[Rfam]
RNA sequence: CUUGCCGAGAAGCGCUGCAAGGCGGGGUGCCCCGUCCCAGGCUCGGUCAUGAUUCAACGGCGCUUGCCUAAC
Numbered sequence: 001c002u003u004g005c006c007g008a009g010a011a012g013c014g015c016u017g018c019a020a021g022g023c024g025g026g027g028u029g030c031c032c033c034g035u036c037c038c039a040g041g042c043u044c045g046g047u048c049a050u051g052a053u054u055c056a057a058c059g060g061c062g063c064u065u066g067c068c069u070a071a072c
Stems, first nucleotide, its partner, number of pairs: 002049001004047005021036006
RNA: SAH (S-adenosyl-L-homocysteine) riboswitch aptamer